[Rfam]
Shown here is a 69-nucleotide RNA sequence from Alkalibacterium sp. 20, a member of the family "Fluoride riboswitch aptamer (crcB RNA motif)".
RNA sequence: UAACAAAUAGGCGAUGGUGUUCGCCUUUAACUAUCAUAAAUAGAUAUGAUUAAUGACGCCUACUUAGAC
Numbered sequence: 001u002a003a004c005a006a007a008u009a010g011g012c013g014a015u016g017g018u019g020u021u022c023g024c025c026u027u028u029a030a031c032u033a034u035c036a037u038a039a040a041u042a043g044a045u046a047u048g049a050u051u052a053a054u055g056a057c058g059c060c061u062a063c064u065u066a067g068a069c
Stems, first nucleotide, its partner, number of pairs: 010025004016060006033050006

A search with the family's covariance model found it, with a score of 52 bits. A reference for the family is Baker et al. (2012), "Widespread genetic switches and toxicity resistance proteins for fluoride", Science.